This 79-nucleotide RNA from Oncorhynchus kisutch belongs to the Rfam family "Small nucleolar RNA SNORD103/SNORD85". The family has 41 seed sequences and 1,349 matches in Rfam 15.1. The base pairs follow the family's consensus structure. The family's RNA type in Rfam is C/D-box small nucleolar RNA. The organism belongs to Oncorhynchus, within Eukaryota. For this family Rfam cites "Identification of 13 novel human modification guide RNAs" (Vitali et al., Nucleic Acids Res, 2003).
[Rfam]
Nucleotides: 079
Stems, first nucleotide, its partner, number of pairs: 001079006
Number, partner (000 for none) and nucleotide at each position: 001079u002078u003077u004076g005075g006074c007000u008000g009000u010000g011000a012000u013000g014000a015000c016000a017000a018000a019000c020000u021000u022000g023000c024000c025000c026000u027000c028000a029000c030000u031000u032000a033000g034000a035000g036000g037000a038000g039000u040000a041000c042000c043000u044000c045000g046000u047000u048000g049000a050000u051000g052000a053000g054000g055000a056000u057000u058000u059000a060000u061000a062000g063000u064000a065000c066000u067000c068000g069000u070000c071000u072000g073000a074006g075005c076004c077003a078002a079001a